[Rfam]
Rfam assigns this 182-nucleotide sequence from Clostridium luticellarii to the family "glmS glucosamine-6-phosphate activated ribozyme aptamer". By type it is a riboswitch. The match comes from Rfam's covariance-model search (106 bits).
RNA sequence: CAGACAAUCAAAGCGCCAGAACUUAAGUUCGACUGACUAAAUCAGAGAUUUGGAGUCUCACUUAAGUUGACGAGGAUGGGGAGUAUCGAAUCUUCGGCGGGUGCCCCACGGUAUCGCACUACCGUUAACAACUGAUAAAACCAGGAAGUAAUUUCUGAUACAAGAUCAGUUUGGUGUAAAAA
Numbered sequence: 001c002a003g004a005c006a007a008u009c010a011a012a013g014c015g016c017c018a019g020a021a022c023u024u025a026a027g028u029u030c031g032a033c034u035g036a037c038u039a040a041a042u043c044a045g046a047g048a049u050u051u052g053g054a055g056u057c058u059c060a061c062u063u064a065a066g067u068u069g070a071c072g073a074g075g076a077u078g079g080g081g082a083g084u085a086u087c088g089a090a091u092c093u094u095c096g097g098c099g100g101g102u103g104c105c106c107c108a109c110g111g112u113a114u115c116g117c118a119c120u121a122c123c124g125u126u127a128a129c130a131a132c133u134g135a136u137a138a139a140a141c142c143a144g145g146a147a148g149u150a151a152u153u154u155c156u157g158a159u160a161c162a163a164g165a166u167c168a169g170u171u172u173g174g175u176g177u178a179a180a181a182a
Stems, first nucleotide, its partner, number of pairs: 020068008077108005086097004109124005130171005142157006